Small nucleolar RNA U83B: an 89-nucleotide RNA sequence from Nannospalax galili. Rfam's curators write: U83B belongs to the C/D family of snoRNAs. U83B like U83A has no documented RNA target and they share the same host gene with the C/D box snoRNA U43 (RPL3). N.B. U83A/B/C have no sequence similarity with the U83 snoRNA that was cloned by Jady and Kiss (2000). Rfam 15.1 lists 966 matches to the family in 652 species. Gene Ontology terms of the family: RNA processing and nucleolus.
[Rfam]
RNA sequence: GCUGCUCUGAAGUGGCCCUGGAACGUGUACUGGGUGCAGCAUCUGAGUGAGUAUGCAGAUCCAUUCCCUUGAGAUUCUGUUCAAGCAGU
Numbered sequence: 001g002c003u004g005c006u007c008u009g010a011a012g013u014g015g016c017c018c019u020g021g022a023a024c025g026u027g028u029a030c031u032g033g034g035u036g037c038a039g040c041a042u043c044u045g046a047g048u049g050a051g052u053a054u055g056c057a058g059a060u061c062c063a064u065u066c067c068c069u070u071g072a073g074a075u076u077c078u079g080u081u082c083a084a085g086c087a088g089u
Stems, first nucleotide, its partner, number of pairs: 001089005
Lineage of the source: Eukaryota > Vertebrata > Dipnotetrapodomorpha > Rodentia > Nannospalax. The base pairs follow the family's consensus structure.